[Rfam]
RNA: Guanidine-I riboswitch aptamer
Nucleotides: 098
Base pairs, nucleotide, nucleotide: 007053008052009051010050011049012048015043016042020040021039022037023034024033025032026031055071056070057069058068059067060066073093075096079091080090081089
Number, partner (000 for none) and nucleotide at each position: 001000a002000c003000c004000u005000u006000a007053g008052c009051u010050u011049u012048c013000u014000a015043g016042g017000g018000u019000u020040c021039c022037g023034c024033g025032g026031c027000a028000a029000u030000g031026g032025c033024c034023g035000g036000c037022c038000u039021g040020g041000a042016c043015c044000g045000a046000g047000a048012g049011a050010a051009a052008g053007c054000a055071c056070a057069c058068a059067g060066c061000g062000g063000u064000a065000a066060g067059c068058u069057g070056u071055g072000a073093c074000a075096c076000g077000g078000a079091g080090g081089g082000a083000u084000a085000a086000a087000a088000g089081c090080c091079c092000g093073g094000g095000a096075g097000a098000u